Small nucleolar RNA R11/Z151: an 87-nucleotide sequence from Cucurbita maxima.
It scores 82 bits against the family's covariance model.
The family has 5 seed sequences and 802 matches in Rfam 15.1.

RNA sequence: GGGCUUAUGAUGAUGUUUUAUAUAAUCUUAGCGGAUUUCAGUGAGAUUUUUCUAUCAAUGAUCGGACUGUUACACACACUGAAGCCU
Number, nucleotide and partner (000 for none) at each position: 001g087002g086003g085004c084005u083006u000007a000008u000009g000010a000011u000012g000013a000014u000015g000016u000017u000018u000019u000020a000021u000022a000023u000024a000025a000026u000027c000028u000029u000030a000031g000032c000033g000034g000035a000036u000037u000038u000039c000040a000041g000042u000043g000044a000045g000046a000047u000048u000049u000050u000051u000052c000053u000054a000055u000056c000057a000058a000059u000060g000061a000062u000063c000064g000065g000066a000067c000068u000069g000070u000071u000072a000073c000074a000075c000076a000077c000078a000079c000080u000081g000082a000083a005084g004085c003086c002087u001